[Rfam]
Rfam assigns this 151-nucleotide RNA from Saimiri boliviensis to the family "Small nucleolar RNA ACA59". Rfam links the family to the GO terms nucleolus and RNA processing. The match comes from Rfam's covariance-model search (118 bits). The base pairs follow the family's consensus structure, which was predicted with WAR.
RNA sequence: GCCCAGGUUAUGUCCCCUCGAUGAUGCUGCCCUCCCAGCUGGCCCAUGGAUGACCCUGGGAACAUUACUGCCUCACAAUGUUUGUGCCUCAGUUACCCAUCGAUGUAGUGAGGGGAGCGAUACUUAGGCUCAUGGGUGGUAAGGAACAGCG
Numbered sequence: 001g002c003c004c005a006g007g008u009u010a011u012g013u014c015c016c017c018u019c020g021a022u023g024a025u026g027c028u029g030c031c032c033u034c035c036c037a038g039c040u041g042g043c044c045c046a047u048g049g050a051u052g053a054c055c056c057u058g059g060g061a062a063c064a065u066u067a068c069u070g071c072c073u074c075a076c077a078a079u080g081u082u083u084g085u086g087c088c089u090c091a092g093u094u095a096c097c098c099a100u101c102g103a104u105g106u107a108g109u110g111a112g113g114g115g116a117g118c119g120a121u122a123c124u125u126a127g128g129c130u131c132a133u134g135g136g137u138g139g140u141a142a143g144g145a146a147c148a149g150c151g
Stems, first nucleotide, its partner, number of pairs: 002060006009053001020031001022029001073139004078106005084100003111130002116125002